The family of this 207-nucleotide RNA sequence from Chrysemys picta is "Small nucleolar RNA SNORA73 family". The family's consensus secondary structure is taken from published work. Clan: snR30-U17 clan. U17 (SNORA73A and SNORA73B) also known as E1 belongs to the H/ACA class of small nucleolar RNAs (snoRNAs). Vertebrate U17 is intron-encoded and ranges in length from 200-230 nucleotides, longer than most snoRNAs. It is one of the most abundant snoRNAs in human cells and is essential for the cleavage of pre-rRNA within the 5' external transcribed spacer (ETS). This cleavage leads to the formation of 18S rRNA. Regions of the U17 RNA are complementary to rRNA and act as guides for RNA/RNA interactions, although these regions do not seem to be well conserved between organisms. The organism belongs to Chrysemys picta, within Eukaryota.
[Rfam]
RNA sequence: CCAACGUGGGCAUCCGGAGAAGUUGCUGUCUCUUGGCUCUGCCCGUGUGGCGUACGGGAGCGUAGGCUUUCGAGCUCCAUGACGUACAGUCCCAUUCCACGACGUUGGAGAAUAAGCUUGGGCCUCUGGUCUGCAGCCUGCAUAUUCCUACUGCUUCUCUGAGUCUUUGGACUGUGACUGAGGAGAUAAACCAUGCAGGAGACAUUA
Numbered sequence: 001c002c003a004a005c006g007u008g009g010g011c012a013u014c015c016g017g018a019g020a021a022g023u024u025g026c027u028g029u030c031u032c033u034u035g036g037c038u039c040u041g042c043c044c045g046u047g048u049g050g051c052g053u054a055c056g057g058g059a060g061c062g063u064a065g066g067c068u069u070u071c072g073a074g075c076u077c078c079a080u081g082a083c084g085u086a087c088a089g090u091c092c093c094a095u096u097c098c099a100c101g102a103c104g105u106u107g108g109a110g111a112a113u114a115a116g117c118u119u120g121g122g123c124c125u126c127u128g129g130u131c132u133g134c135a136g137c138c139u140g141c142a143u144a145u146u147c148c149u150a151c152u153g154c155u156u157c158u159c160u161g162a163g164u165c166u167u168u169g170g171a172c173u174g175u176g177a178c179u180g181a182g183g184a185g186a187u188a189a190a191c192c193a194u195g196c197a198g199g200a201g202a203c204a205u206u207a
Stems, first nucleotide, its partner, number of pairs: 001108007008044005014036003018031003047100004056093004060087001062085002065080001137199007154185006163172003
A reference for the family is Enright et al. (1996), "5'ETS rRNA processing facilitated by four small RNAs: U14, E3, U17, and U3", RNA.